[Rfam]
This 70-nucleotide RNA belongs to the Rfam family "DUF3800-IX RNA".

RNA sequence: CCCUUGCUUCCGAACUGCCGCCGUAUGGUGAGCGUGCCCGGUUCCGCCGGGAGUAGGAAGCAGGGGGCGC
Numbered sequence: 001c002c003c004u005u006g007c008u009u010c011c012g013a014a015c016u017g018c019c020g021c022c023g024u025a026u027g028g029u030g031a032g033c034g035u036g037c038c039c040g041g042u043u044c045c046g047c048c049g050g051g052a053g054u055a056g057g058a059a060g061c062a063g064g065g066g067g068c069g070c
Stems, first nucleotide, its partner, number of pairs: 001066006008059004016034003019030004037051004

Actinobacteria, Firmicutes (1 example), Nitrospirae, Proteobacteria, Verrucomicrobia (1 example).